[Rfam]
Overview:
This 90-nucleotide RNA from Enterococcus italicus belongs to the Rfam family "SAM-III riboswitch aptamer (SMK box)". The source organism's lineage runs through Bacteria, Bacilli, Lactobacillales, Enterococcus and Enterococcus italicus.

RNA sequence: UUUCGUUGCAAGUUCCCGAAAGGAUUCGCAUAUGAACGAAUAGCGAAGAUGCCUUGUAACCGAAUCGAAAUUUAGGGGGAAUAAAAAAUG
Numbered sequence: 001u002u003u004c005g006u007u008g009c010a011a012g013u014u015c016c017c018g019a020a021a022g023g024a025u026u027c028g029c030a031u032a033u034g035a036a037c038g039a040a041u042a043g044c045g046a047a048g049a050u051g052c053c054u055u056g057u058a059a060c061c062g063a064a065u066c067g068a069a070a071u072u073u074a075g076g077g078g079g080a081a082u083a084a085a086a087a088a089u090g
Stems, first nucleotide, its partner, number of pairs: 013081005020055004025047005060076002
Dot-bracket structure: ............(((((..((((.(((((.............)))))....))))....((.............))))))).........